[Rfam]
RNA sequence: GGUCAUGAGCGCCAGCGCCAAGCCCCGGCUCGCUGGCCGGCAACCCCGCGUCGUGGGGUGCUCCGGGUGAUGACCGGACCAGGCGUCCGCGCCCGGUAACGGCGCGCU
Numbered sequence: 001g002g003u004c005a006u007g008a009g010c011g012c013c014a015g016c017g018c019c020a021a022g023c024c025c026c027g028g029c030u031c032g033c034u035g036g037c038c039g040g041c042a043a044c045c046c047c048g049c050g051u052c053g054u055g056g057g058g059u060g061c062u063c064c065g066g067g068u069g070a071u072g073a074c075c076g077g078a079c080c081a082g083g084c085g086u087c088c089g090c091g092c093c094c095g096g097u098a099a100c101g102g103c104g105c106g107c108u
Base pairs, nucleotide, nucleotide: 001075002074003073004072009038011037012036013035014034015033016032021030022029039062040061041060044058045057046056078097079096080095082093083092084091085090
Rfam assigns this 108-nucleotide RNA sequence from Streptomyces sp. NP160 to the family "SAM (S-adenosyl methionine) riboswitch aptamer". The family's consensus secondary structure is taken from published work. It scores 79 bits against the family's covariance model. Rfam's curators write: SAM-IV is a mRNA element that regulates gene expression via direct sensing of S-adenosylmethionine (SAM or AdoMet). SAM-IV riboswitches share conserved nucleotide positions with the previously described SAM-I riboswitches sequence analysis and molecular recognition experiments suggest that SAM-I and SAM-IV riboswitches share similar ligand binding sites, but have different scaffolds.